[Rfam]
RNA: Metazoan signal recognition particle RNA
RNA sequence: ACUGGGCGUUGUGGCGUGCGCCUGUAAUCCAGCUACUUGGAGGUCGGAAGUUUGGAUUGCUUGAGUUCGGGAGCUCUGCGGGUCGUUGUGCUAUGGCGAUCGAGUGUCCACGCUAAGUUGUGCAUCAAUAGGGUUGACUGUACGGAGGUAUGGUUGUCCUGGUUGUCUAAGGAGGGGCGAACCGGCCCAGGGCGGAAACGCAGCAGGCAAAAGUCCCCGUGCGAAACAGUAGCGGGAUCGCACUUGUGAAUAGUCGGCGGCCAGCAGCCCGAACGAUACAGUGAGACUUGCUUCCUU
Numbered sequence: 001a002c003u004g005g006g007c008g009u010u011g012u013g014g015c016g017u018g019c020g021c022c023u024g025u026a027a028u029c030c031a032g033c034u035a036c037u038u039g040g041a042g043g044u045c046g047g048a049a050g051u052u053u054g055g056a057u058u059g060c061u062u063g064a065g066u067u068c069g070g071g072a073g074c075u076c077u078g079c080g081g082g083u084c085g086u087u088g089u090g091c092u093a094u095g096g097c098g099a100u101c102g103a104g105u106g107u108c109c110a111c112g113c114u115a116a117g118u119u120g121u122g123c124a125u126c127a128a129u130a131g132g133g134u135u136g137a138c139u140g141u142a143c144g145g146a147g148g149u150a151u152g153g154u155u156g157u158c159c160u161g162g163u164u165g166u167c168u169a170a171g172g173a174g175g176g177g178c179g180a181a182c183c184g185g186c187c188c189a190g191g192g193c194g195g196a197a198a199c200g201c202a203g204c205a206g207g208c209a210a211a212a213g214u215c216c217c218c219g220u221g222c223g224a225a226a227c228a229g230u231a232g233c234g235g236g237a238u239c240g241c242a243c244u245u246g247u248g249a250a251u252a253g254u255c256g257g258c259g260g261c262c263a264g265c266a267g268c269c270c271g272a273a274c275g276a277u278a279c280a281g282u283g284a285g286a287c288u289u290g291c292u293u294c295c296u297u
Stems, first nucleotide, its partner, number of pairs: 001044003004023006028041003046295006054287001057284005065274007076267004081262008090254005101246007108236002111234005117227003121223005126165004131160003135156009166172002174217005185208003192201003